[Rfam]
RNA sequence: GGACGAACCUCUGGAGAGACCCGCCAAGGGCGCCGAAGGGGCAAGCGAAACGCGAAACUCUCAGGCAAAAGGACAGAGGAGACGAA
Numbered sequence: 001g002g003a004c005g006a007a008c009c010u011c012u013g014g015a016g017a018g019a020c021c022c023g024c025c026a027a028g029g030g031c032g033c034c035g036a037a038g039g040g041g042c043a044a045g046c047g048a049a050a051c052g053c054g055a056a057a058c059u060c061u062c063a064g065g066c067a068a069a070a071g072g073a074c075a076g077a078g079g080a081g082a083c084g085a086a
Stems, first nucleotide, its partner, number of pairs: 008079006020030003032066003035062002039060003045053002

Shown here is an 86-nucleotide RNA sequence from Effusibacillus dendaii, a member of the family "Glycine riboswitch aptamer". The base pairs follow the family's consensus structure. About the family: This family represents the bacterial glycine riboswitch. NCBI's taxonomy places the organism under Bacteria, Bacilli, Caryophanales, Alicyclobacillaceae, Effusibacillus. It scores 65 bits against the family's covariance model.